[Rfam]
RNA sequence: GACGAUGAUGAGAGGAAUGUUCUGACUUGGUAGUGCCUCCAUUGGAAGGCCCUGAUCAAGGUGUGAUUAGACAUAAUCUUCUCUCUGAGUCU
Numbered sequence: 001g002a003c004g005a006u007g008a009u010g011a012g013a014g015g016a017a018u019g020u021u022c023u024g025a026c027u028u029g030g031u032a033g034u035g036c037c038u039c040c041a042u043u044g045g046a047a048g049g050c051c052c053u054g055a056u057c058a059a060g061g062u063g064u065g066a067u068u069a070g071a072c073a074u075a076a077u078c079u080u081c082u083c084u085c086u087g088a089g090u091c092u
Stems, first nucleotide, its partner, number of pairs: 002090002035050004